[Rfam]
RNA sequence: AUAAAUAAAUAAGGUCACCUUAAAAAUUUAU
Numbered sequence: 001a002u003a004a005a006u007a008a009a010u011a012a013g014g015u016c017a018c019c020u021u022a023a024a025a026a027u028u029u030a031u
Stems, first nucleotide, its partner, number of pairs: 001031006011021004